[Rfam]
RNA: mir-9/mir-79 microRNA precursor family
Organism: Octopus sinensis
RNA sequence: AACACCAUCUCUUCGGUUAUCUGGCCAUAUGAAAAAACGCUAUGAAAAAAAAAAAGAAAGCGUUUUUUCAUAUGGCCAGAUAACCGAAGAGAUGGUGUU
Numbered sequence: 001a002a003c004a005c006c007a008u009c010u011c012u013u014c015g016g017u018u019a020u021c022u023g024g025c026c027a028u029a030u031g032a033a034a035a036a037a038c039g040c041u042a043u044g045a046a047a048a049a050a051a052a053a054a055a056g057a058a059a060g061c062g063u064u065u066u067u068u069c070a071u072a073u074g075g076c077c078a079g080a081u082a083a084c085c086g087a088a089g090a091g092a093u094g095g096u097g098u099u
Stems, first nucleotide, its partner, number of pairs: 001099005007093020028072014